[Rfam]
Histidine operon leader: a 132-nucleotide RNA sequence from Pasteurella bettyae. It is annotated as a cis-regulatory leader. Its family is annotated with histidine biosynthetic process in the Gene Ontology. Rfam's curators write: At least 6 amino acid operons are known to be regulated by attenuation. In each a leader sequence of 150-200 bp is found upstream of the first gene in the operon. This leader sequence can assume two different secondary structures known as the terminator and the anti-terminator structure. For this family Rfam cites "Attenuation in amino acid biosynthetic operons" (Kolter and Yanofsky, Annu Rev Genet, 1982). It scores 84 bits against the family's covariance model.
RNA sequence: CCAUCAUCACCAUCACCCUGAUUAAUCUUUCGGGUAUUUGGUGUAUGCGGAAGAUUCAAAUUCUUCCGAGCUCAAGUACGAUAUAACAAAAUAAAAAAACUCUCGGAAGUCGAAUUCCGAGAGUUUUUUUUU
Numbered sequence: 001c002c003a004u005c006a007u008c009a010c011c012a013u014c015a016c017c018c019u020g021a022u023u024a025a026u027c028u029u030u031c032g033g034g035u036a037u038u039u040g041g042u043g044u045a046u047g048c049g050g051a052a053g054a055u056u057c058a059a060a061u062u063c064u065u066c067c068g069a070g071c072u073c074a075a076g077u078a079c080g081a082u083a084u085a086a087c088a089a090a091a092u093a094a095a096a097a098a099a100c101u102c103u104c105g106g107a108a109g110u111c112g113a114a115u116u117c118c119g120a121g122a123g124u125u126u127u128u129u130u131u132u
Stems, first nucleotide, its partner, number of pairs: 009044002011040002017034005046069001048068007094129015
The base pairs follow the family's consensus structure, which is taken from published work.